Rfam assigns this 83-nucleotide sequence from Clarias magur to the family "mir-22 microRNA precursor family". The family's consensus secondary structure was predicted with RNAalifold. Its family is annotated with miRNA-mediated post-transcriptional gene silencing and RISC complex in the Gene Ontology. A reference for the family is Fu et al. (2005), "Identification of human fetal liver miRNAs by a novel method", FEBS Lett. NCBI's taxonomy places the organism under Eukaryota, Eumetazoa, Clupeocephala, Siluroidei, Clarias.

[Rfam]
RNA sequence: CGUUGCUUCACAGUCGUUCUUCACUGGCUAGCUUUACGUGGAUCGGCAUUAAAGCUGCCAGUUGAAGAACUGUUGUGGGUAAC
Number, nucleotide and partner (000 for none) at each position: 001c000002g000003u000004u000005g080006c079007u078008u000009c000010a076011c075012a074013g000014u000015c000016g000017u069018u068019c067020u066021u065022c064023a000024c000025u000026g059027g058028c057029u000030a056031g055032c054033u053034u052035u051036a050037c000038g000039u000040g000041g000042a000043u000044c000045g000046g000047c000048a000049u000050u036051a035052a034053a033054g032055c031056u030057g028058c027059c026060a000061g000062u000063u000064g022065a021066a020067g019068a018069a017070c000071u000072g000073u000074u012075g011076u010077g000078g007079g006080u005081a000082a000083c000